[Rfam]
RNA sequence: UCACUGUGCACCGCCCCUGGCUGAGGGUGCUGGGCCAUUCCGUGACACUCCUCCCCAGUGUCACGGAAUGGCCCAGCACCCUCAGCCAGGGGCGGUGCAGUGACAGUGG
Numbered sequence: 001u002c003a004c005u006g007u008g009c010a011c012c013g014c015c016c017c018u019g020g021c022u023g024a025g026g027g028u029g030c031u032g033g034g035c036c037a038u039u040c041c042g043u044g045a046c047a048c049u050c051c052u053c054c055c056c057a058g059u060g061u062c063a064c065g066g067a068a069u070g071g072c073c074c075a076g077c078a079c080c081c082u083c084a085g086c087c088a089g090g091g092g093c094g095g096u097g098c099a100g101u102g103a104c105a106g107u108g109g
Stems, first nucleotide, its partner, number of pairs: 010096007018088002021085014036071001039068001041065008
Dot-bracket structure: .........(((((((.((.((((((((((((((.(..(.((((((((.........))))))))..)..))))))))))))))).)).))))))).............
The family of this 109-nucleotide RNA sequence from Leptobrachium leishanense is "mraW RNA". The family's RNA type in Rfam is cis-regulatory element.